[Rfam]
RNA sequence: CACAGGAAUUCGGGAGAAACCGGUGACAAUCCGGGGCCGAAGGAGCAGCCGCCCCGGCGAACUCUCAGGCAAAAGGACCGUUUUCCCCAA
Dot-bracket structure: .....(((..(((......((((.......)))).(((((..(((..((.......))...))))).))).......)))..))).....
Overview: A member of the RNA family "Glycine riboswitch aptamer" from Paracoccus sp. SM22M-07, 90 nucleotides long.